[Rfam]
RNA sequence: AACUAUUCUCAGGGCGGGGUGAAACUCCCCACCGGCGGUAUGCUUAUACUCAAAGCGAGCCCGCGAGCGCCUGCCAAUGGGCAGGGUCAGCAGAUCUGGUGAGAUGCCAGAGCCGACGGUUACAGUCCGGAUGAAAGAGGAUAGGC
Numbered sequence: 001a002a003c004u005a006u007u008c009u010c011a012g013g014g015c016g017g018g019g020u021g022a023a024a025c026u027c028c029c030c031a032c033c034g035g036c037g038g039u040a041u042g043c044u045u046a047u048a049c050u051c052a053a054a055g056c057g058a059g060c061c062c063g064c065g066a067g068c069g070c071c072u073g074c075c076a077a078u079g080g081g082c083a084g085g086g087u088c089a090g091c092a093g094a095u096c097u098g099g100u101g102a103g104a105u106g107c108c109a110g111a112g113c114c115g116a117c118g119g120u121u122a123c124a125g126u127c128c129g130g131a132u133g134a135a136a137g138a139g140g141a142u143a144g145g146c
Stems, first nucleotide, its partner, number of pairs: 003144008017029003031126002033115002035064004059113002067091002095111005117129003